[Rfam]
RNA: Bacterial RNase P class A
Organism: Allobosea sp. AAP35
RNA sequence: CCAGUCGGCCGGACGGCCGCUCUCGCAAGAACUCAGGUUCUCGUGGGGGAGGAAAGUCCGGGCUCCACGGAAACACGGUGCCGGAUAACGUCCGGCGGGGGCGACCCCAGGGACAGCGCCACAGAGAUCGAACCGCCUGCGUGCCUCGGCUCGCAGGUAAGGGUGAAAAGGUGCGGUAAGAGCGCACCGCGGACCCGGCAACGGGGACGGCAUGGCAAGCCCCACCGGGAGCAAAACCGAAUAGGGACGAUGCUUUUCGCGCGAGCGGGGAGGGGCCUGUUUCUGGGCCUUGUCGUCCGGGUUGGUUGCUCGAGGCGCGCAGCAAUGCGCGUCCCAGAGGAAUGGCCGUCACGUCGGGGGAGCGAUCUCCCGGCCAUCCAAAACCCGGCUUACAGGCCGACUGGCAAU
Numbered sequence: 001c002c003a004g005u006c007g008g009c010c011g012g013a014c015g016g017c018c019g020c021u022c023u024c025g026c027a028a029g030a031a032c033u034c035a036g037g038u039u040c041u042c043g044u045g046g047g048g049g050a051g052g053a054a055a056g057u058c059c060g061g062g063c064u065c066c067a068c069g070g071a072a073a074c075a076c077g078g079u080g081c082c083g084g085a086u087a088a089c090g091u092c093c094g095g096c097g098g099g100g101g102c103g104a105c106c107c108c109a110g111g112g113a114c115a116g117c118g119c120c121a122c123a124g125a126g127a128u129c130g131a132a133c134c135g136c137c138u139g140c141g142u143g144c145c146u147c148g149g150c151u152c153g154c155a156g157g158u159a160a161g162g163g164u165g166a167a168a169a170g171g172u173g174c175g176g177u178a179a180g181a182g183c184g185c186a187c188c189g190c191g192g193a194c195c196c197g198g199c200a201a202c203g204g205g206g207a208c209g210g211c212a213u214g215g216c217a218a219g220c221c222c223c224a225c226c227g228g229g230a231g232c233a234a235a236a237c238c239g240a241a242u243a244g245g246g247a248c249g250a251u252g253c254u255u256u257u258c259g260c261g262c263g264a265g266c267g268g269g270g271a272g273g274g275g276c277c278u279g280u281u282u283c284u285g286g287g288c289c290u291u292g293u294c295g296u297c298c299g300g301g302u303u304g305g306u307u308g309c310u311c312g313a314g315g316c317g318c319g320c321a322g323c324a325a326u327g328c329g330c331g332u333c334c335c336a337g338a339g340g341a342a343u344g345g346c347c348g349u350c351a352c353g354u355c356g357g358g359g360g361a362g363c364g365a366u367c368u369c370c371c372g373g374c375c376a377u378c379c380a381a382a383a384c385c386c387g388g389c390u391u392a393c394a395g396g397c398c399g400a401c402u403g404g405c406a407a408u
Base pairs, nucleotide, nucleotide: 001404002403003402004401005400006399007398008397009396010395011393012350013349014348015347016346017345018344020049021048022047023046024045025044026043028041029040030039031038054391055390056389058388059387060386061385062384063231064230065229066228072282073281076227077226078225079224080223081095082094083093084092085091096110097108098107099106100105111222112221116220117219118216119215120214133162134161135158136157137156138155139154140153141152143150170188171187172186173185174184175183189211190209191208194205195204196203197202235307236306237305238304245298246297247296248295249294250293274289275288276287277286278285314333315332316331317330318329319328320327321326